The family of this 99-nucleotide RNA sequence from Facklamia miroungae is "SAM riboswitch aptamer (S box leader)". The match comes from Rfam's covariance-model search (59 bits). Its Rfam clan is "SAM clan".
RNA sequence: AACUUAUCGAGAGUAAGCUGAGGGAAUUAGCCCGACGACGCUUCAGCAACCUACCAUUCGGCAAGGUGUUCCUUCCAACUCAAAAGAGAAAGAUAAGUC
Numbered sequence: 001a002a003c004u005u006a007u008c009g010a011g012a013g014u015a016a017g018c019u020g021a022g023g024g025a026a027u028u029a030g031c032c033c034g035a036c037g038a039c040g041c042u043u044c045a046g047c048a049a050c051c052u053a054c055c056a057u058u059c060g061g062c063a064a065g066g067u068g069u070u071c072c073u074u075c076c077a078a079c080u081c082a083a084a085a086g087a088g089a090a091a092g093a094u095a096a097g098u099c
Base pairs, nucleotide, nucleotide: 002098003097004096005095006094007093008092013044015043016042017041018040022033023032024031027078028077030075045070046069047068048067050066051065052063054061055060074091079088080087081086